Rfam assigns this 135-nucleotide RNA sequence to the family "TPP riboswitch aptamer (THI element)".
Pairs were carried over by alignment from the consensus structure, which is taken from published work.
[Rfam]
Nucleotides: 135
Stems, first nucleotide, its partner, number of pairs: 006123004011084004016078001017071005090115004096109004
Number, partner (000 for none) and nucleotide at each position: 001000g002000a003000a004000a005000c006123g007122c008121a009120c010000c011084a012083g013082g014081g015000g016078u017071g018070u019069c020068u021067g022000u023000a024000u025000c026000u027000g028000c029000u030000c031000c032000a033000g034000c035000c036000c037000u038000g039000g040000c041000u042000c043000c044000c045000u046000c047000g048000g049000c050000c051000a052000g053000g054000a055000u056000g057000c058000u059000g060000g061000c062000u063000g064000a065000a066000a067021c068020a069019g070018g071017c072000u073000g074000a075000g076000a077000a078016a079000g080000u081014c082013c083012c084011u085000u086000c087000g088000a089000a090115c091114c092113u093112g094000a095000a096109c097108a098107g099106g100000a101000u102000a103000a104000u105000g106099c107098c108097u109096g110000c111000g112093u113092a114091g115090g116000g117000a118000g119000c120009g121008u122007g123006c124000a125000u126000u127000u128000c129000c130000u131000u132000u133000u134000c135000u